[Rfam]
RNA sequence: ACGGGAACAGCACGGCCGUAACUCUGACUCGCCUGUGUUCGCAGGCUUGGGAUUACGGAGGUGC
Numbered sequence: 001a002c003g004g005g006a007a008c009a010g011c012a013c014g015g016c017c018g019u020a021a022c023u024c025u026g027a028c029u030c031g032c033c034u035g036u037g038u039u040c041g042c043a044g045g046c047u048u049g050g051g052a053u054u055a056c057g058g059a060g061g062u063g064c
Base pairs, nucleotide, nucleotide: 010064011063012062013061016058017057018056019055020054021053024051025050031046032045033044034043035042036041
A member of the RNA family "S15-Halobacteria ribosomal protein leader" from Halogranum rubrum, 64 nucleotides long. On this family, see Eckert and Weinberg, BMC Microbiol 2020: "Discovery of 20 novel ribosomal leader candidates in bacteria and archaea". The organism belongs to Halogranum rubrum, within Archaea. The family's consensus secondary structure is taken from published work.